A member of the RNA family "GA-cis RNA", 86 nucleotides long. The base pairs follow the family's consensus structure, which is taken from published work. It is annotated as a small RNA.
RNA sequence: GGAAUGAGACAUUCAUGUAACGUAGGCACAUAUUAAAUAGUGACGACGAAAUGUCACCGAACGAAUGUGAAUGGACGAUAAAAAGA
Numbered sequence: 001g002g003a004a005u006g007a008g009a010c011a012u013u014c015a016u017g018u019a020a021c022g023u024a025g026g027c028a029c030a031u032a033u034u035a036a037a038u039a040g041u042g043a044c045g046a047c048g049a050a051a052u053g054u055c056a057c058c059g060a061a062c063g064a065a066u067g068u069g070a071a072u073g074g075a076c077g078a079u080a081a082a083a084a085g086a
Base pairs, nucleotide, nucleotide: 008044010042011041012040013039015031016030017029018028053076054075055074061068062067